[Rfam]
This 177-nucleotide RNA sequence from Pseudohaemophilus parahaemolyticus belongs to the Rfam family "nqrA-II ncRNA motif". The organism belongs to Pseudohaemophilus parahaemolyticus, within Bacteria. Rfam classes the family as a cis-regulatory element. It is one of the family's seed sequences. A reference for the family is Narunsky et al. (2024), "The discovery of novel noncoding RNAs in 50 bacterial genomes", Nucleic Acids Res.

RNA sequence: AUUUUGCAUCUUUGAGAUUGAUUUUCGAGAGGAGCAGAAACGAUUUGAGAACUUUUUGUAACCUUUAAUUAUCAGUGGGGGAAUUCGCUUAUGAUUAAAUUAGUUACGACUCAAUACGCGAUUGCGAUUGUUCGCAAUCAUUUUUUAAACCCAAGAAAAGUAGUGCAAAUAAUAUGA
Numbered sequence: 001a002u003u004u005u006g007c008a009u010c011u012u013u014g015a016g017a018u019u020g021a022u023u024u025u026c027g028a029g030a031g032g033a034g035c036a037g038a039a040a041c042g043a044u045u046u047g048a049g050a051a052c053u054u055u056u057u058g059u060a061a062c063c064u065u066u067a068a069u070u071a072u073c074a075g076u077g078g079g080g081g082a083a084u085u086c087g088c089u090u091a092u093g094a095u096u097a098a099a100u101u102a103g104u105u106a107c108g109a110c111u112c113a114a115u116a117c118g119c120g121a122u123u124g125c126g127a128u129u130g131u132u133c134g135c136a137a138u139c140a141u142u143u144u145u146u147a148a149a150c151c152c153a154a155g156a157a158a159a160g161u162a163g164u165g166c167a168a169a170u171a172a173u174a175u176g177a
Base pairs, nucleotide, nucleotide: 002039003038004037005036006035007034009032010031011030012029013028045114046113047112048111049110057108058107059106060105061104062103064099065098066097067096068095069094070093071092072091074089075088076087077086078085079084118166119165120139121138122137123136124135125134126133127132142160143159144158145157146156